[Rfam]
RNA: Small nucleolar RNA snoR100
RNA sequence: GGAUGAAGGUAGCAUGGUUCUGUGCAUAGAAAUCGAAAGGUCAACAUGUCUUCCCUCUCUGAUUCUCUGAUAUGAGGGCAUUGUUACGACCUACAUUU
Numbered sequence: 001g002g003a004u005g006a007a008g009g010u011a012g013c014a015u016g017g018u019u020c021u022g023u024g025c026a027u028a029g030a031a032a033u034c035g036a037a038a039g040g041u042c043a044a045c046a047u048g049u050c051u052u053c054c055c056u057c058u059c060u061g062a063u064u065c066u067c068u069g070a071u072a073u074g075a076g077g078g079c080a081u082u083g084u085u086a087c088g089a090c091c092u093a094c095a096u097u098u
Stems, first nucleotide, its partner, number of pairs: 012025004038081001040079003048071003